[Rfam]
RNA sequence: GGGUUCAGAGACUAGUCUCUGGAGGAAUAUUGCAAGUUGGUCGGGCCGCCACU
Numbered sequence: 001g002g003g004u005u006c007a008g009a010g011a012c013u014a015g016u017c018u019c020u021g022g023a024g025g026a027a028u029a030u031u032g033c034a035a036g037u038u039g040g041u042c043g044g045g046c047c048g049c050c051a052c053u
Stems, first nucleotide, its partner, number of pairs: 005022007035053003039050003